[Rfam]
RNA sequence: AAUCCGGUUGAUCCUGCCGGAGGCUACCGCUAUUGGAGUUCGAUUAAGCCAUGCGAGUCGAGAGUCUUAGGGACUCGGCGCACCGCUCAGUAACACGUGGGUAACCUGCCCUAUGCUGGGGGAUAACCUCGGGAAACUGAGAAUAAUACCCCAUAGUUCACCACGCCUGGAACGGUGGGUGGAUCAAAGCUCCGGCGGCAUAGGAUGGGCCUGCGACGUAUCAGGUUGUAGGGGGUGUAACGUACCCUCUAGCCAUCAACGCGUACGGGUGUUGGGAGACAUAGCCCGGAGAUGGAUUCUGAGACACGAAUCCAGACCCUACGGGGUGCAGCAGGCGCGAAAACUUGGCAAUGCGAGCAAUCGUGACCAGGGAACUCCAAGUGGCUGGGGUAAUACCCAGUUUUUUCUUGACUCUUCAAAGGUCUUGGAAUAAGGGGUGGGUAAGGACGGUGCCAGCCGCCGCGGUAAUACCGGCGCCUCAAGUGGUAGUCGCUUUUAUUG
Numbered sequence: 001a002a003u004c005c006g007g008u009u010g011a012u013c014c015u016g017c018c019g020g021a022g023g024c025u026a027c028c029g030c031u032a033u034u035g036g037a038g039u040u041c042g043a044u045u046a047a048g049c050c051a052u053g054c055g056a057g058u059c060g061a062g063a064g065u066c067u068u069a070g071g072g073a074c075u076c077g078g079c080g081c082a083c084c085g086c087u088c089a090g091u092a093a094c095a096c097g098u099g100g101g102u103a104a105c106c107u108g109c110c111c112u113a114u115g116c117u118g119g120g121g122g123a124u125a126a127c128c129u130c131g132g133g134a135a136a137c138u139g140a141g142a143a144u145a146a147u148a149c150c151c152c153a154u155a156g157u158u159c160a161c162c163a164c165g166c167c168u169g170g171a172a173c174g175g176u177g178g179g180u181g182g183a184u185c186a187a188a189g190c191u192c193c194g195g196c197g198g199c200a201u202a203g204g205a206u207g208g209g210c211c212u213g214c215g216a217c218g219u220a221u222c223a224g225g226u227u228g229u230a231g232g233g234g235g236u237g238u239a240a241c242g243u244a245c246c247c248u249c250u251a252g253c254c255a256u257c258a259a260c261g262c263g264u265a266c267g268g269g270u271g272u273u274g275g276g277a278g279a280c281a282u283a284g285c286c287c288g289g290a291g292a293u294g295g296a297u298u299c300u301g302a303g304a305c306a307c308g309a310a311u312c313c314a315g316a317c318c319c320u321a322c323g324g325g326g327u328g329c330a331g332c333a334g335g336c337g338c339g340a341a342a343a344c345u346u347g348g349c350a351a352u353g354c355g356a357g358c359a360a361u362c363g364u365g366a367c368c369a370g371g372g373a374a375c376u377c378c379a380a381g382u383g384g385c386u387g388g389g390g391u392a393a394u395a396c397c398c399a400g401u402u403u404u405u406u407c408u409u410g411a412c413u414c415u416u417c418a419a420a421g422g423u424c425u426u427g428g429a430a431u432a433a434g435g436g437g438u439g440g441g442u443a444a445g446g447a448c449g450g451u452g453c454c455a456g457c458c459g460c461c462g463c464g465g466u467a468a469u470a471c472c473g474g475c476g477c478c479u480c481a482a483g484u485g486g487u488a489g490u491c492g493c494u495u496u497u498a499u500u501g
Stems, first nucleotide, its partner, number of pairs: 004020005022491010033380009042338001048336003052333003057079003062076006086291003096215007105208002110204007118152004128141005157183006166175002189196002217263003224254003229251008266288004270281004293314006316327004344370001346369003352365005383402007407427001410424004434480006448473003456463002
Dot-bracket structure: ...(((((.......))))).((((((((((.((((((((((.....(((.(((..(((..((((((...)))))))))......(((.......(((((((..((...(((((((.((((......(((((....))))).......))))....((((((...((......))..)))))).....((....)).)))))))..))))))))).(((....(((..((((((((.......)))))))))))......)))..((((((((....))))...))))))).((((((..........)))))).((((....))))...)))))).).....(.(((...(((((....))))).)))).)))))))))..(((((((......)))))))....(..((((.......))))..)......((((((........(((.....((....)).......))).)))))).))))))))))..........
RNA: Archaeal small subunit ribosomal RNA, nucleotides 1 to 501